[Rfam]
RNA sequence: UUACAAAGCAAAUACUUCUCUAAACAAUUUUAACUCUUUUUAAACGUUUUUACGUUCAAACUACCCAGUCAAAAUGAAUCCCUGCUCCUGCAACUGCUGCUCCGGCAACUGCAACAACUGCUCUUGCGGCUCCUGCGGCGUACGUUGAC
Numbered sequence: 001u002u003a004c005a006a007a008g009c010a011a012a013u014a015c016u017u018c019u020c021u022a023a024a025c026a027a028u029u030u031u032a033a034c035u036c037u038u039u040u041u042a043a044a045c046g047u048u049u050u051u052a053c054g055u056u057c058a059a060a061c062u063a064c065c066c067a068g069u070c071a072a073a074a075u076g077a078a079u080c081c082c083u084g085c086u087c088c089u090g091c092a093a094c095u096g097c098u099g100c101u102c103c104g105g106c107a108a109c110u111g112c113a114a115c116a117a118c119u120g121c122u123c124u125u126g127c128g129g130c131u132c133c134u135g136c137g138g139c140g141u142a143c144g145u146u147g148a149c
Stems, first nucleotide, its partner, number of pairs: 083107004090100003111136003120127002
RNA: A. fumigatus sRNA Afu_254